[Rfam]
The record is a 98-nucleotide RNA from Eudromia elegans, which matches "Vault RNA" in Rfam.
RNA sequence: GGGCCGGCUCGAGCCCAGCGGUUAUUUCGGCAUGUUGUGAUUUCCACGCAACAUCGCCCCGACCGGGGUUCGAUCCCGCGGGCACCCCUGGCCCUUUU
Numbered sequence: 001g002g003g004c005c006g007g008c009u010c011g012a013g014c015c016c017a018g019c020g021g022u023u024a025u026u027u028c029g030g031c032a033u034g035u036u037g038u039g040a041u042u043u044c045c046a047c048g049c050a051a052c053a054u055c056g057c058c059c060c061g062a063c064c065g066g067g068g069u070u071c072g073a074u075c076c077c078g079c080g081g082g083c084a085c086c087c088c089u090g091g092c093c094c095u096u097u098u
Base pairs, nucleotide, nucleotide: 002093003092004091005090006089007088013083014082015081016080018079019078020077021076027073028072029071030070

A search with the family's covariance model found it, with a score of 54 bits.